[Rfam]
Record summary:
This 92-nucleotide RNA sequence from Hyphomonas neptunium belongs to the Rfam family "Glycine riboswitch aptamer". The organism belongs to Hyphomonas neptunium, within Bacteria. The match comes from Rfam's covariance-model search (69 bits).
RNA sequence: UAUUCUCUUCCGGGAGAGAGCGGCAUUCGGUAGCCGCCGCCGAAGGCGCAACCGCCCCGGAAACGCUCAGGCAAAAGGGCCGGAAGAGGAUC
Numbered sequence: 001u002a003u004u005c006u007c008u009u010c011c012g013g014g015a016g017a018g019a020g021c022g023g024c025a026u027u028c029g030g031u032a033g034c035c036g037c038c039g040c041c042g043a044a045g046g047c048g049c050a051a052c053c054g055c056c057c058c059g060g061a062a063a064c065g066c067u068c069a070g071g072c073a074a075a076a077g078g079g080c081c082g083g084a085a086g087a088g089g090a091u092c
Base pairs, nucleotide, nucleotide: 006087007086008085009084010083011082012081013080020037021036022035023034039072040071041070042068043067046066047065048064052060053059
This family represents the bacterial glycine riboswitch.